[Rfam]
The family of this 160-nucleotide RNA sequence from Clostridium sp. L2-50 is "Clostridiales-1 RNA". NCBI's taxonomy places the organism under Bacteria, Bacillati, Clostridia, Clostridiaceae, Clostridium. Rfam classes the family as a small RNA.
RNA sequence: CAAUAAAUCUGCCAAGCAAAUAAGCAACGUGUCUGUAUAAAGACAACGUUGCUUAUUUAUUUGGCAGAUAAACAGAUAUGAGUAAGAAGGUCGAAUAGCCCGGAGUGCGAAUAGCUGUACGAUUUCGAAAGUCCGACGGACGGAAAAAUCGGUAUUAUUG
Numbered sequence: 001c002a003a004u005a006a007a008u009c010u011g012c013c014a015a016g017c018a019a020a021u022a023a024g025c026a027a028c029g030u031g032u033c034u035g036u037a038u039a040a041a042g043a044c045a046a047c048g049u050u051g052c053u054u055a056u057u058u059a060u061u062u063g064g065c066a067g068a069u070a071a072a073c074a075g076a077u078a079u080g081a082g083u084a085a086g087a088a089g090g091u092c093g094a095a096u097a098g099c100c101c102g103g104a105g106u107g108c109g110a111a112u113a114g115c116u117g118u119a120c121g122a123u124u125u126c127g128a129a130a131g132u133c134c135g136a137c138g139g140a141c142g143g144a145a146a147a148a149u150c151g152g153u154a155u156u157a158u159u160g
Base pairs, nucleotide, nucleotide: 001160002159003158004157005156006155009067010066011065012064015061016060018058019057020056021055022054023053024052025051026050027049028048029047030046031044032043033042034041072118073117074116075115077113078112079111082108083107084106089101090100092098120151121150122149123148124147125146131141132140133139134138